[Rfam]
RNA sequence: AUUCACAUGUUACUACAUUCUCGUAUAUUUUUGGGAAUAUGGCCCAAAAGUUUCUACAGGCAACCAUGAAUUGCCGUCUACGGGUGAAAAUGCAUCUAGG
Numbered sequence: 001a002u003u004c005a006c007a008u009g010u011u012a013c014u015a016c017a018u019u020c021u022c023g024u025a026u027a028u029u030u031u032u033g034g035g036a037a038u039a040u041g042g043c044c045c046a047a048a049a050g051u052u053u054c055u056a057c058a059g060g061c062a063a064c065c066a067u068g069a070a071u072u073g074c075c076g077u078c079u080a081c082g083g084g085u086g087a088a089a090a091u092g093c094a095u096c097u098a099g100g
Stems, first nucleotide, its partner, number of pairs: 018086001020084006029049007059075005
Purine riboswitch aptamer: a 100-nucleotide sequence from Pelosinus sp. UFO1. The match comes from Rfam's covariance-model search (70 bits).